[Rfam]
RNA sequence: GCCUCCUACAAAGGCGUGUCUGUUUCCCUGUCUUUGGACACAAAAGAAUUGGAGGCAAAGAAAUGUGGAGAAGUCUGGAGCCAGCUUGUUCCUUGUGGGCUCAAGAUCAACCAUCCCACAUAG
Numbered sequence: 001g002c003c004u005c006c007u008a009c010a011a012a013g014g015c016g017u018g019u020c021u022g023u024u025u026c027c028c029u030g031u032c033u034u035u036g037g038a039c040a041c042a043a044a045a046g047a048a049u050u051g052g053a054g055g056c057a058a059a060g061a062a063a064u065g066u067g068g069a070g071a072a073g074u075c076u077g078g079a080g081c082c083a084g085c086u087u088g089u090u091c092c093u094u095g096u097g098g099g100c101u102c103a104a105g106a107u108c109a110a111c112c113a114u115c116c117c118a119c120a121u122a123g
Stems, first nucleotide, its partner, number of pairs: 002055005016041006022028001067116003083101007
A member of the RNA family "Small nucleolar RNA SNORA38" from Molossus molossus, 123 nucleotides long.
Pairs were carried over by alignment from the consensus structure, which was predicted with RNAfold.
The match comes from Rfam's covariance-model search (116 bits).
Rfam classes the family as an H/ACA-box small nucleolar RNA.
ACA38 is a member of the H/ACA class of snoRNA that guide the sites of modification of uridines to pseudouridines.
The organism belongs to Molossus, within Eukaryota.